[Rfam]
RNA sequence: AUGAAAAACAAGAAAGAUUAGUAUUAAGAAUAAACUCCCGACUCUGCCUUUAGCCUCCUAAAUGAAAAGGUAGAUAGAACAGGUCUUGUUUGCAAAAUAAAUUCAAGACCUACUUAUCUACCAACAGUA
Numbered sequence: 001a002u003g004a005a006a007a008a009c010a011a012g013a014a015a016g017a018u019u020a021g022u023a024u025u026a027a028g029a030a031u032a033a034a035c036u037c038c039c040g041a042c043u044c045u046g047c048c049u050u051u052a053g054c055c056u057c058c059u060a061a062a063u064g065a066a067a068a069g070g071u072a073g074a075u076a077g078a079a080c081a082g083g084u085c086u087u088g089u090u091u092g093c094a095a096a097a098u099a100a101a102u103u104c105a106a107g108a109c110c111u112a113c114u115u116a117u118c119u120a121c122c123a124a125c126a127g128u129a
Stems, first nucleotide, its partner, number of pairs: 003058001005056001010051002019046003024041002027036002069122008081111008

The record is a 129-nucleotide RNA from Microcebus murinus, which matches "Small Cajal body specific RNA 15" in Rfam. From the family's description: scaRNAs are a specific class of small nuclear RNAs which localise to the Cajal bodies and guide the modification of RNA polymerase II transcribed spliceosomal RNAs U1, U2, U4, U5 and U12. ACA45 belongs to the H/ACA box class of guide RNAs as it has the predicted hairpin-hinge-hairpin-tail structure, the conserved H/ACA-box motifs and is found associated with GAR1. ACA45 is predicted to guide the pseudouridylation of residue U37 of the U2 spliceosomal snRNA. By type it is a small Cajal body RNA. Its family is annotated with nucleolus, Cajal body and RNA processing in the Gene Ontology. The literature on the family includes a 2002 paper in EMBO J by Darzacq et al., "Cajal body-specific small nuclear RNAs: a novel class of 2'-O-methylation and pseudouridylation guide RNAs". The family's consensus secondary structure was predicted with RNAfold.